Rfam assigns this 173-nucleotide RNA sequence from Oceanodroma tethys to the family "Small Cajal body specific RNA 16". On this family, see Darzacq et al., EMBO J 2002: "Cajal body-specific small nuclear RNAs: a novel class of 2'-O-methylation and pseudouridylation guide RNAs".
[Rfam]
RNA sequence: GGGGGCUGGGGAAGGGCUGGCGGGGGGGCCAGCGGCCCAGCCUCGUACCCGCCGGCCUCACCCGCGCCCGAGAGCAACUCCGCGGCGGGGCCCGUGCGGGCGCAGCCGGGGCAGUAGCAGGUGUGAGCAUUCAUGCAGCGUCUUGGUGGUCAUGUAUGAUACUGCACACAGCG
Numbered sequence: 001g002g003g004g005g006c007u008g009g010g011g012a013a014g015g016g017c018u019g020g021c022g023g024g025g026g027g028g029c030c031a032g033c034g035g036c037c038c039a040g041c042c043u044c045g046u047a048c049c050c051g052c053c054g055g056c057c058u059c060a061c062c063c064g065c066g067c068c069c070g071a072g073a074g075c076a077a078c079u080c081c082g083c084g085g086c087g088g089g090g091c092c093c094g095u096g097c098g099g100g101c102g103c104a105g106c107c108g109g110g111g112c113a114g115u116a117g118c119a120g121g122u123g124u125g126a127g128c129a130u131u132c133a134u135g136c137a138g139c140g141u142c143u144u145g146g147u148g149g150u151c152a153u154g155u156a157u158g159a160u161a162c163u164g165c166a167c168a169c170a171g172c173g
Stems, first nucleotide, its partner, number of pairs: 003069004008063003015057004020052004025048001027042003081100001083098001085095004109167001111165006118158002124152003128148004135142001

The base pairs follow the family's consensus structure, which was predicted with RNAfold. scaRNAs are a specific class of small nuclear RNAs which localise to the Cajal bodies and guide the modification of RNA polymerase II transcribed spliceosomal RNAs U1, U2, U4, U5 and U12. ACA47 belongs to the H/ACA box class of guide RNAs as it has the predicted hairpin-hinge-hairpin-tail structure, the conserved H/ACA-box motifs and is found associated with GAR1. ACA47 is predicted to guide the pseudouridylation of residue U5 of the U1 spliceosomal snRNA. Gene Ontology terms of the family: RNA processing and nucleolus. It is annotated as a small Cajal body RNA.